[Rfam]
RNA sequence: AGCCUUCUUAAUCGGUGCCGAUUUUUCAUCAGACAGUAGACCAUCAAUACUGAUGAGAUUCCCAAGUUACAUGGAGCG
Numbered sequence: 001a002g003c004c005u006u007c008u009u010a011a012u013c014g015g016u017g018c019c020g021a022u023u024u025u026u027c028a029u030c031a032g033a034c035a036g037u038a039g040a041c042c043a044u045c046a047a048u049a050c051u052g053a054u055g056a057g058a059u060u061c062c063c064a065a066g067u068u069a070c071a072u073g074g075a076g077c078g
Stems, first nucleotide, its partner, number of pairs: 002077002005074002008071001011068001013066001016064002020061002024058007

The record is a 78-nucleotide RNA from Schistosoma haematobium, which matches "mir-3492 microRNA precursor family" in Rfam. NCBI's taxonomy places the organism under Eukaryota, Spiralia, Digenea, Strigeidida, Schistosoma. Rfam 15.1 lists 21,496 matches to the family in 13 species. Its family is annotated with miRNA-mediated post-transcriptional gene silencing and RISC complex in the Gene Ontology.